RNA sequence: CCGUCCCUCAUUGGGGAGUAGCCGCCCCGCGCCACGUUCGCCCGGCAUCUAGCCGGGCUCGCAACAACGUGCGCUCGCGGGGGCGCCUGUCAACAGACUUGGCCGUCAUGGCCGUGGCAGCCGCAGCCUCUGGCCUGGCGAGACCGAUGACCCACACCCCGCCGCAAUUGGGCCCGGCGUGUCGUGGGUCGUCGCUCGUUCAUUUCCCGGCCCGCGGAU
Numbered sequence: 001c002c003g004u005c006c007c008u009c010a011u012u013g014g015g016g017a018g019u020a021g022c023c024g025c026c027c028c029g030c031g032c033c034a035c036g037u038u039c040g041c042c043c044g045g046c047a048u049c050u051a052g053c054c055g056g057g058c059u060c061g062c063a064a065c066a067a068c069g070u071g072c073g074c075u076c077g078c079g080g081g082g083g084c085g086c087c088u089g090u091c092a093a094c095a096g097a098c099u100u101g102g103c104c105g106u107c108a109u110g111g112c113c114g115u116g117g118c119a120g121c122c123g124c125a126g127c128c129u130c131u132g133g134c135c136u137g138g139c140g141a142g143a144c145c146g147a148u149g150a151c152c153c154a155c156a157c158c159c160c161g162c163c164g165c166a167a168u169u170g171g172g173c174c175c176g177g178c179g180u181g182u183c184g185u186g187g188g189u190c191g192u193c194g195c196u197c198g199u200u201c202a203u204u205u206c207c208c209g210g211c212c213c214g215c216g217g218a219u
Base pairs, nucleotide, nucleotide: 026081027080028079029078030077031076083124084123085122087120088119089118090117091116092115100114101113102112103111104110129218130217131216132215
This 219-nucleotide RNA sequence from Paraburkholderia graminis belongs to the Rfam family "Manganese Mn2+ riboswitch aptamer (yybP-ykoY)".
The match comes from Rfam's covariance-model search (50 bits).
Rfam 15.1 lists 1,126 matches to the family in 1,062 species.